[Rfam]
RNA sequence: UCCCAUUUAGGAAACAGGCAUGUGUCUUGCCUCUUGUCCUAGUCCCAGAGCCUGUAAAGGGGAGCCCACAGGGCUGGCUGGGGAAGAAGCAGAAAGUUUGUUGUAGAAGGAACAGGGAU
Numbered sequence: 001u002c003c004c005a006u007u008u009a010g011g012a013a014a015c016a017g018g019c020a021u022g023u024g025u026c027u028u029g030c031c032u033c034u035u036g037u038c039c040u041a042g043u044c045c046c047a048g049a050g051c052c053u054g055u056a057a058a059g060g061g062g063a064g065c066c067c068a069c070a071g072g073g074c075u076g077g078c079u080g081g082g083g084a085a086g087a088a089g090c091a092g093a094a095a096g097u098u099u100g101u102u103g104u105a106g107a108a109g110g111a112a113c114a115g116g117g118a119u
Stems, first nucleotide, its partner, number of pairs: 001118004
Small nucleolar RNA SNORD22: a 119-nucleotide sequence from Pipistrellus kuhlii. On this family, see Tycowski et al., Nature 1996: "A mammalian gene with introns instead of exons generating stable RNA products". NCBI's taxonomy places the organism under Eukaryota, Metazoa, Euteleostomi, Eutheria, Pipistrellus. The family has 49 seed sequences and 1,081 matches in Rfam 15.1. Its family is annotated with nucleolus and RNA processing in the Gene Ontology.